[Rfam]
A member of the RNA family "M-box riboswitch aptamer (ykoK leader)" from Lactobacillus acetotolerans, 161 nucleotides long. The organism belongs to Lactobacillus, within Bacteria. Rfam's curators write: M-box riboswitch, also know as ykoK leader is described as a metaloregulatory RNA that sense divalent metals and function as a genetic control element of genes related to divalent metal transport in bacteria. It was first reported upstream of the B.subtilis ykoK gene and genes with related functions in other bacteria. On this family, see Barrick et al., Proc Natl Acad Sci U S A 2004: "New RNA motifs suggest an expanded scope for riboswitches in bacterial genetic control". Its family is annotated with response to magnesium ion and regulation of gene expression in the Gene Ontology. The base pairs follow the family's consensus structure.

RNA sequence: CAAAUAAACUGUUAGGUGAGACUCCUACGUGAACACACGCUAUUGCCCGGAAACAUCCAGAGAUGCCAACGGGUUAAGUAGGUGUCGUCGACUUAAGGCGGGAUCCAGAUAGCUAGGCAUUUACGUCACAUAGUGUUAAAACUGAACGACGAGUAUAAAAA
Numbered sequence: 001c002a003a004a005u006a007a008a009c010u011g012u013u014a015g016g017u018g019a020g021a022c023u024c025c026u027a028c029g030u031g032a033a034c035a036c037a038c039g040c041u042a043u044u045g046c047c048c049g050g051a052a053a054c055a056u057c058c059a060g061a062g063a064u065g066c067c068a069a070c071g072g073g074u075u076a077a078g079u080a081g082g083u084g085u086c087g088u089c090g091a092c093u094u095a096a097g098g099c100g101g102g103a104u105c106c107a108g109a110u111a112g113c114u115a116g117g118c119a120u121u122u123a124c125g126u127c128a129c130a131u132a133g134u135g136u137u138a139a140a141a142c143u144g145a146a147c148g149a150c151g152a153g154u155a156u157a158a159a160a161a
Stems, first nucleotide, its partner, number of pairs: 005157002008154003011147002013096001015143003020137003025133003029129004039113005045074005054065004081105003087099003